RNA: Small nucleolar RNA SNORA33
Organism: Galemys pyrenaicus
RNA sequence: AAGCCAGUUGGUGAAUCUGCUUACUUGGUUGUGUUUGCAGAAAUUUAGAAAAAGCUGGCAAUAGCAGAGCCAUGUUACGAGCCUUAAAGACACUGAAGUCAUUAAGGUCCCUGAAAAUGGCUACAAGA
Numbered sequence: 001a002a003g004c005c006a007g008u009u010g011g012u013g014a015a016u017c018u019g020c021u022u023a024c025u026u027g028g029u030u031g032u033g034u035u036u037g038c039a040g041a042a043a044u045u046u047a048g049a050a051a052a053a054g055c056u057g058g059c060a061a062u063a064g065c066a067g068a069g070c071c072a073u074g075u076u077a078c079g080a081g082c083c084u085u086a087a088a089g090a091c092a093c094u095g096a097a098g099u100c101a102u103u104a105a106g107g108u109c110c111c112u113g114a115a116a117a118u119g120g121c122u123a124c125a126a127g128a
Stems, first nucleotide, its partner, number of pairs: 003059005016041005069121004081108007089100003
Dot-bracket structure: ..(((((........(((((................))))).............))))).........((((........(((((((.(((......))).))))))).........)))).......